[Rfam]
Nucleotides: 169
Stems, first nucleotide, its partner, number of pairs: 001167002004164003008161002012022004032056001035053001037051004060071003076154001084147002086144001088142001092140004099133001101131002104128001106126002110123003114119001
Number, partner (000 for none) and nucleotide at each position: 001167g002166g003000g004164g005163u006162c007000u008161g009160c010000a011000c012022g013021g014020c015019g016000a017000g018000g019015c020014g021013c022012u023000c024000a025000c026000g027000a028000u029000c030000g031000g032056c033000g034000a035053u036000c037051u038050c039049a040048c041000c042000g043000c044000c045000g046000a047000u048040g049039u050038g051037g052000u053035a054000a055000g056032g057000a058000a059000g060071g061070c062069c063000g064000c065000a066000g067000u068000u069062g070061g071060c072000g073000a074000a075000c076154g077000a078000g079000a080000c081000g082000u083000c084147c085146g086144g087000u088142c089000c090000a091000c092140g093139c094138u095137c096000a097000a098000g099133c100000a101131u102130g103000a104128u105000a106126a107125u108000g109000c110123g111122g112121g113000c114119g115000g116000a117000u118000u119114c120000a121112u122111u123110c124000a125107g126106u127000c128104g129000g130102c131101g132000g133099g134000c135000g136000c137095g138094g139093g140092c141000g142088g143000c144086u145000g146085c147084g148000g149000a150000u151000g152000c153000g154076c155000c156000a157000c158000c159000g160009g161008c162006g163005a164004c165000a166002c167001c168000g169000c